[Rfam]
RNA sequence: ACGAACCGGUGCUAAAGGGUCCUGCCCAACGGCUACUGAUAGGUGCUGUCGGGGCAGAGACCCUUUAGCACCGGUUUGU
Numbered sequence: 001a002c003g004a005a006c007c008g009g010u011g012c013u014a015a016a017g018g019g020u021c022c023u024g025c026c027c028a029a030c031g032g033c034u035a036c037u038g039a040u041a042g043g044u045g046c047u048g049u050c051g052g053g054g055c056a057g058a059g060a061c062c063c064u065u066u067a068g069c070a071c072c073g074g075u076u077u078g079u
Stems, first nucleotide, its partner, number of pairs: 001079020023057001025053003029049002036042002
Shown here is a 79-nucleotide RNA from Sorghum bicolor, a member of the family "MIR5387 microRNA precursor family". The source organism's lineage runs through Eukaryota, Streptophytina, Magnoliopsida, Petrosaviidae and Sorghum. The family has 2 seed sequences and 1,029 matches in Rfam 15.1. It scores 70 bits against the family's covariance model. Pairs were carried over by alignment from the consensus structure, which was predicted with RNAalifold.